A member of the RNA family "Alphaproteobacterial ar14" from Martelella mediterranea, 126 nucleotides long.
The match comes from Rfam's covariance-model search (97 bits).
Rfam links the family to the GO term biological process involved in symbiotic interaction.
The pairing is the family consensus, mapped onto this sequence.
The family's RNA type in Rfam is small RNA.
On this family, see Robledo et al., Environ Microbiol 2017: "A conserved alpha-proteobacterial small RNA contributes to osmoadaptation and symbiotic efficiency of rhizobia on legume roots".
Rfam describes the family as follows. Smr14C2 was renamed NfeR1 (Nodule Formation Efficiency RNA) highly expressed in salt stress and during the symbiotic interaction on legume roots.

RNA sequence: AGUUUUCGAAGUCGCGCUCUCCUCCUCCCGGCGCGCUUCGAACAGGGCAGACGAUACUCCUCCUCCCAAUCGUCAACCCUACCCAAUGACGCCCACCGGAUCCUCCUCCCCCGGUGGGCGUUGUUU
Numbered sequence: 001a002g003u004u005u006u007c008g009a010a011g012u013c014g015c016g017c018u019c020u021c022c023u024c025c026u027c028c029c030g031g032c033g034c035g036c037u038u039c040g041a042a043c044a045g046g047g048c049a050g051a052c053g054a055u056a057c058u059c060c061u062c063c064u065c066c067c068a069a070u071c072g073u074c075a076a077c078c079c080u081a082c083c084c085a086a087u088g089a090c091g092c093c094c095a096c097c098g099g100a101u102c103c104u105c106c107u108c109c110c111c112c113g114g115u116g117g118g119c120g121u122u123g124u125u126u
Stems, first nucleotide, its partner, number of pairs: 007040003011036001013035005046078002050074006089121011